[Rfam]
RNA sequence: GCCAAGGGCACGUACUUAUUUGUAUUGCCAUACGAAUGAGCUGUAGCUAUGGAAUGUAAAGAAGUAUGUACCCUGGGC
Dot-bracket structure: ......((.((((((((.(((((((..(((((...............))))).))))))).)))))))).))......
Numbered sequence: 001g002c003c004a005a006g007g008g009c010a011c012g013u014a015c016u017u018a019u020u021u022g023u024a025u026u027g028c029c030a031u032a033c034g035a036a037u038g039a040g041c042u043g044u045a046g047c048u049a050u051g052g053a054a055u056g057u058a059a060a061g062a063a064g065u066a067u068g069u070a071c072c073c074u075g076g077g078c
Stems, first nucleotide, its partner, number of pairs: 007072002010069008019060007028052005